[Rfam]
RNA sequence: GUAUGGGUGCCUUGCGAUGUGGCUUCGUUUGAGCCUUAAACAGCGAGAAGUUGCAACCUUUUGGUAUCCAUCUAUUUGCAAGAUUGGCUUUGUUUAUGGGCCACUCUUCUAUGCGACGCCCACUUGGGU
Numbered sequence: 001g002u003a004u005g006g007g008u009g010c011c012u013u014g015c016g017a018u019g020u021g022g023c024u025u026c027g028u029u030u031g032a033g034c035c036u037u038a039a040a041c042a043g044c045g046a047g048a049a050g051u052u053g054c055a056a057c058c059u060u061u062u063g064g065u066a067u068c069c070a071u072c073u074a075u076u077u078g079c080a081a082g083a084u085u086g087g088c089u090u091u092g093u094u095u096a097u098g099g100g101c102c103a104c105u106c107u108u109c110u111a112u113g114c115g116a117c118g119c120c121c122a123c124u125u126g127g128g129u
Base pairs, nucleotide, nucleotide: 003071004070005069006068007067008066009065018055019054020053021052023050024049025048026047033044034043036042085103086102087101088100089099090098
RNA: purD RNA motif
Organism: Campylobacter concisus